[Rfam]
RNA sequence: AGACCCCACUCUGUGGCAGAUGAUCGAAAUUGUCUGACACAAUAUGAGCAAGAAGAUCUAACCUAUUCCAGUGUUUUCUCCUCUGAGAACCCAACUGUUACACAGACUGUUGGCUA
Numbered sequence: 001a002g003a004c005c006c007c008a009c010u011c012u013g014u015g016g017c018a019g020a021u022g023a024u025c026g027a028a029a030u031u032g033u034c035u036g037a038c039a040c041a042a043u044a045u046g047a048g049c050a051a052g053a054a055g056a057u058c059u060a061a062c063c064u065a066u067u068c069c070a071g072u073g074u075u076u077u078c079u080c081c082u083c084u085g086a087g088a089a090c091c092c093a094a095c096u097g098u099u100a101c102a103c104a105g106a107c108u109g110u111u112g113g114c115u116a
Base pairs, nucleotide, nucleotide: 009048010047011046012041013040014039015038017036018035019034020033021032022031054110055108057106058105059104064102066100069097070096071095072094079088080087
Shown here is a 116-nucleotide RNA from Mustela putorius, a member of the family "Small nucleolar RNA SNORA28". Taxonomically the source falls in Mustela putorius (Eukaryota, Amniota, Eutheria, Carnivora). The match comes from Rfam's covariance-model search (66 bits). ACA28 is a member of the H/ACA class of snoRNA that guide the sites of modification of uridines to pseudouridines. Its family is annotated with nucleolus and RNA processing in the Gene Ontology.